A member of the RNA family "Glycine riboswitch aptamer" from a Dermatophilaceae bacterium, 91 nucleotides long. Lineage of the source: Bacteria > Bacillati > Actinomycetes > Micrococcales > Dermatophilaceae. Rfam links the family to the GO term glycine biosynthetic process.
RNA sequence: CGAACUCUGGAAAGCAGGACCCGGUCCUGCACCCACGGUGCAAGCCGCCACAGGCGGUGAAGCUCUCAGGUCCCAUGACAGAGCGGGGAGG
Numbered sequence: 001c002g003a004a005c006u007c008u009g010g011a012a013a014g015c016a017g018g019a020c021c022c023g024g025u026c027c028u029g030c031a032c033c034c035a036c037g038g039u040g041c042a043a044g045c046c047g048c049c050a051c052a053g054g055c056g057g058u059g060a061a062g063c064u065c066u067c068a069g070g071u072c073c074c075a076u077g078a079c080a081g082a083g084c085g086g087g088g089a090g091g
Stems, first nucleotide, its partner, number of pairs: 005083005015029004031071003035066001038065001040063001044058004